[Rfam]
RNA: Glycine riboswitch aptamer
Organism: Firmicutes bacterium CAG:170
RNA sequence: GAAGGAAUCUCUGGAGAACUCAUUGAAUUGGGUGCCGAAGGUGCAAGGCGAACGCCGAAUCUCUCAGGCAAAAGGACAGAGUGCAGCAU
Dot-bracket structure: ........(((((.....((((......)))).(((((..(.(...((......))....).))).))).......)))))........